[Rfam]
Notes: Shown here is an 84-nucleotide sequence from Colidextribacter sp. OB.20, a member of the family "Twister_sister_ribozyme".
RNA sequence: UUAGCCCGCAAGGCCGACGGCAUCCGCCGCCGCUGGUGCAAGCCCAGCCGCCGGAGAAAUCCAGCGGGCGCUCAUGGGUAAAGG
Numbered sequence: 001u002u003a004g005c006c007c008g009c010a011a012g013g014c015c016g017a018c019g020g021c022a023u024c025c026g027c028c029g030c031c032g033c034u035g036g037u038g039c040a041a042g043c044c045c046a047g048c049c050g051c052c053g054g055a056g057a058a059a060u061c062c063a064g065c066g067g068g069c070g071c072u073c074a075u076g077g078g079u080a081a082a083g084g
Stems, first nucleotide, its partner, number of pairs: 004079004013069003018029003032048004049066003053062002